[Rfam]
RNA sequence: AGGUGAUGUCUUCUUACCUAUAUCAAUGAAGGCACUCGGUUAUGCUGUGGGCUGAAAUGCCUUAGAUACUUAGUUGUCGGUAGUGUGAUGUGAGGUGGGGUUGGAUGCCCU
Numbered sequence: 001a002g003g004u005g006a007u008g009u010c011u012u013c014u015u016a017c018c019u020a021u022a023u024c025a026a027u028g029a030a031g032g033c034a035c036u037c038g039g040u041u042a043u044g045c046u047g048u049g050g051g052c053u054g055a056a057a058u059g060c061c062u063u064a065g066a067u068a069c070u071u072a073g074u075u076g077u078c079g080g081u082a083g084u085g086u087g088a089u090g091u092g093a094g095g096u097g098g099g100g101u102u103g104g105a106u107g108c109c110c111u
Base pairs, nucleotide, nucleotide: 001019002018003017004016007034008033009032010031011030012029013028035094036093037092038091039089040088041087042086043085044084045083046082049062050061051060052059065078066077067076068075097111098110099109100108101107

epsC RNA: a 111-nucleotide RNA sequence from Cytobacillus horneckiae.
A search with the family's covariance model found it, with a score of 99 bits.